[Rfam]
RNA sequence: GUAGUCGGAUUCGUAUUAAUCUACGUAUGUUGGGAUGGAUUAAAGUGAAACUUGAACUAAAUUCCACCUUAAUCCACCCAACCCAUGUGGAUUGAGGUGAAUCGAUA
Numbered sequence: 001g002u003a004g005u006c007g008g009a010u011u012c013g014u015a016u017u018a019a020u021c022u023a024c025g026u027a028u029g030u031u032g033g034g035a036u037g038g039a040u041u042a043a044a045g046u047g048a049a050a051c052u053u054g055a056a057c058u059a060a061a062u063u064c065c066a067c068c069u070u071a072a073u074c075c076a077c078c079c080a081a082c083c084c085a086u087g088u089g090g091a092u093u094g095a096g097g098u099g100a101a102u103c104g105a106u107a
Stems, first nucleotide, its partner, number of pairs: 004106004009102006016095011029082004036076008045067003
RNA: MIR5565 microRNA precursor family